[Rfam]
RNA sequence: AAUCCAAAGCAGAAGCACCCGCUUCUCACCUGCAUGAUGCACAUGGUGUUGUCGACAGGUAUGCUUAAUCCAUAAUAUCGGGUUAUAUUUAUGGAAUAGAAUGCGGGCGCAGUGUGUCCGCAUUUUUGCUUUGGU
Dot-bracket structure: ..........((((((....)))))).(((........((((.....)).)).....))).........................................(((((((((...))))))))).............
Description
A member of the RNA family "Ribosomal protein L20 leader" from Aneurinibacillus sp. XH2, 135 nucleotides long. The source organism's lineage runs through Bacteria, Bacillati, Bacillota, Paenibacillaceae and Aneurinibacillus. Rfam's curators write: This family is a putative r-protein leader autoregulatory structure found in B. subtilis and other low-GC Gram-positive bacteria. It scores 66 bits against the family's covariance model. By type it is a cis-regulatory leader.